[Rfam]
RNA sequence: AUCUGUACCCAUAGGGGAAGGUGAGAACCUUCGGCAAGGUUCGCGCCGAGCGCAGCGAGACAACAACGCAGCGCGUUGGCCCGCAGGGUGAGGAACGCAGUGACGAAUUAUCCUUCCCCCACCACCA
Dot-bracket structure: ..............((((((((.........((.(....(.((...((.......))......((((((...))))))...)).).).))...................).))))))).........
RtT RNA: a 127-nucleotide sequence from Yersinia ruckeri. The family's RNA type in Rfam is cis-regulatory element. This family represents a bacterial cis-regulatory element known as RtT RNA. The exact function of RtT is unknown although it is thought that it may be involved in changing the cellular response in relation to amino acid starvation. Gene Ontology term of the family: cellular response to amino acid starvation. It scores 118 bits against the family's covariance model. The literature on the family includes a 1991 paper in Nucleic Acids Res by Bosl and Kersten, "A novel RNA product of the tyrT operon of Escherichia coli". The base pairs follow the family's consensus structure, which is taken from published work.